[Rfam]
RNA sequence: AACAUUCACAAACACCGAGCCCUCAAACCUAAGUUCUCCGAAUAGGGUUUGUUGGCCGUGAACCGGUCUGUCCGGUUCACCAGGGUCGGCGGAGAAAUCCGUCGGCCUCCCGAACUUGGAAAGGCGUUUGAUGCUAGAAGAC
Numbered sequence: 001a002a003c004a005u006u007c008a009c010a011a012a013c014a015c016c017g018a019g020c021c022c023u024c025a026a027a028c029c030u031a032a033g034u035u036c037u038c039c040g041a042a043u044a045g046g047g048u049u050u051g052u053u054g055g056c057c058g059u060g061a062a063c064c065g066g067u068c069u070g071u072c073c074g075g076u077u078c079a080c081c082a083g084g085g086u087c088g089g090c091g092g093a094g095a096a097a098u099c100c101g102u103c104g105g106c107c108u109c110c111c112g113a114a115c116u117u118g119g120a121a122a123g124g125c126g127u128u129u130g131a132u133g134c135u136a137g138a139a140g141a142c
Stems, first nucleotide, its partner, number of pairs: 004135001006133001011128003015124002019056003024051006033043004058080009083108011109119002
Molybdenum/Tungsten riboswitch aptamer (Moco RNA motif): a 142-nucleotide RNA sequence from Microbulbifer rhizosphaerae.